Overview
mir-2788 microRNA precursor family: a 92-nucleotide RNA from Arctia plantaginis. Gene Ontology terms of the family: miRNA-mediated post-transcriptional gene silencing and RISC complex.
[Rfam]
RNA sequence: UAAAAUCGUCGCCGUAUAGCUGGGGUUUCAAAGCGGCAUGUGCCACCUGUUAAGCAAUGCCCUUGGAAAUCCCAAACGUGCAGGCGACGGCA
Numbered sequence: 001u002a003a004a005a006u007c008g009u010c011g012c013c014g015u016a017u018a019g020c021u022g023g024g025g026u027u028u029c030a031a032a033g034c035g036g037c038a039u040g041u042g043c044c045a046c047c048u049g050u051u052a053a054g055c056a057a058u059g060c061c062c063u064u065g066g067a068a069a070u071c072c073c074a075a076a077c078g079u080g081c082a083g084g085c086g087a088c089g090g091c092a
Stems, first nucleotide, its partner, number of pairs: 008088006014081003021074009031064003035061005041056003